Record summary
Rfam assigns this 117-nucleotide RNA sequence from Pararhizobium polonicum to the family "TPP riboswitch aptamer (THI element)". It scores 67 bits against the family's covariance model. Taxonomically the source falls in Pararhizobium (Bacteria, Pseudomonadati, Alphaproteobacteria, Hyphomicrobiales). Pairs were carried over by alignment from the consensus structure, which is taken from published work.
RNA sequence: CCUGCUCUAACGGGGUGCCGUUCGUCGUUCUCGACGUCCGGCUGAGAGGCUGCCGCCAGCCAACCCGAAGAACCUGAUCCGGUUUGUACCGGCGGAGGGAUUAGACGGCACAAUCAG
Number, nucleotide and partner (000 for none) at each position: 001c000002c000003u000004g000005c000006u105007c104008u103009a102010a101011c067012g066013g065014g064015g000016u000017g042018c041019c040020g039021u000022u000023c000024g000025u000026c000027g000028u000029u000030c000031u000032c000033g000034a000035c000036g000037u000038c000039c020040g019041g018042c017043u000044g000045a000046g000047a000048g000049g060050c059051u058052g057053c000054c000055g000056c000057c052058a051059g050060c049061c000062a000063a000064c014065c013066c012067g011068a000069a000070g000071a000072a000073c098074c097075u096076g000077a000078u000079c092080c091081g090082g089083u000084u000085u000086g000087u000088a000089c082090c081091g080092g079093c000094g000095g000096a075097g074098g073099g000100a000101u010102u009103a008104g007105a006106c000107g000108g000109c000110a000111c000112a000113a000114u000115c000116a000117g000